Shown here is a 315-nucleotide RNA sequence from Candidatus Nitrososphaera gargensis, a member of the family "Archaeal signal recognition particle RNA".
RNA sequence: GGAGGCAGGGAGGAUCGGGGUGCCAGCCGUACCCCAUACUGGAAAUCGGCUUUAUGCCAGGAUCAGUAACGGCCGGGUAAAUCCGCUGGCAGGAGGUUCCCGCUUGCCUUGCUGAAAUGAAAUCACGCCGUGUCGGAUGGUUAUGAGCGGCGAACUGCGCGAAGGCGCGGUCUCGACCGCGCAUCGUCGAAAUGGGUGAGGUCCGGGAGGGAGCAACCCUAAGGCGGCGUAACCAUGCUAGCACGUCUACGUGGUGGAUCUUGCGGGGCCUGAAAUGGGGCCUUGUGCCAACGGUGGUACCGGUCGGCUGCCUCC
Numbered sequence: 001g002g003a004g005g006c007a008g009g010g011a012g013g014a015u016c017g018g019g020g021u022g023c024c025a026g027c028c029g030u031a032c033c034c035c036a037u038a039c040u041g042g043a044a045a046u047c048g049g050c051u052u053u054a055u056g057c058c059a060g061g062a063u064c065a066g067u068a069a070c071g072g073c074c075g076g077g078u079a080a081a082u083c084c085g086c087u088g089g090c091a092g093g094a095g096g097u098u099c100c101c102g103c104u105u106g107c108c109u110u111g112c113u114g115a116a117a118u119g120a121a122a123u124c125a126c127g128c129c130g131u132g133u134c135g136g137a138u139g140g141u142u143a144u145g146a147g148c149g150g151c152g153a154a155c156u157g158c159g160c161g162a163a164g165g166c167g168c169g170g171u172c173u174c175g176a177c178c179g180c181g182c183a184u185c186g187u188c189g190a191a192a193u194g195g196g197u198g199a200g201g202u203c204c205g206g207g208a209g210g211g212a213g214c215a216a217c218c219c220u221a222a223g224g225c226g227g228c229g230u231a232a233c234c235a236u237g238c239u240a241g242c243a244c245g246u247c248u249a250c251g252u253g254g255u256g257g258a259u260c261u262u263g264c265g266g267g268g269c270c271u272g273a274a275a276u277g278g279g280g281c282c283u284u285g286u287g288c289c290a291a292c293g294g295u296g297g298u299a300c301c302g303g304u305c306g307g308c309u310g311c312c313u314c315c
Stems, first nucleotide, its partner, number of pairs: 001315008013064004017035007039060004044055001070306007083294003088288001092286001094284003098280005103272001106269007114261001116259001118257001122255006129245005135239002137236008145182001147180004151175003154171007184227005194219004202211003

Notes
Taxonomically the source falls in Candidatus Nitrososphaera gargensis (Archaea, Nitrososphaerota, Nitrososphaeraceae, Nitrososphaera). Rfam classes the family as a non-coding RNA gene. It scores 118 bits against the family's covariance model. The literature on the family includes a 2002 paper in Curr Opin Struct Biol by Wild et al., "Towards the structure of the mammalian signal recognition particle". The family is grouped with related families in Rfam's "SRP clan".